DUF805 RNA: a 67-nucleotide RNA from Tenacibaculum sp. MAR_2010_89. Lineage of the source: Bacteria > Flavobacteriia > Flavobacteriales > Flavobacteriaceae > Tenacibaculum. The match comes from Rfam's covariance-model search (62 bits). Pairs were carried over by alignment from the consensus structure, which is taken from published work.
[Rfam]
RNA sequence: ACAGAGUAGAGUUCAGAAACUACAAAAACGAGGCGAACCCUGAAAAGCCUUACGAGUAAGGAAUAUU
Numbered sequence: 001a002c003a004g005a006g007u008a009g010a011g012u013u014c015a016g017a018a019a020c021u022a023c024a025a026a027a028a029c030g031a032g033g034c035g036a037a038c039c040c041u042g043a044a045a046a047g048c049c050u051u052a053c054g055a056g057u058a059a060g061g062a063a064u065a066u067u
Stems, first nucleotide, its partner, number of pairs: 006023004032049003039061002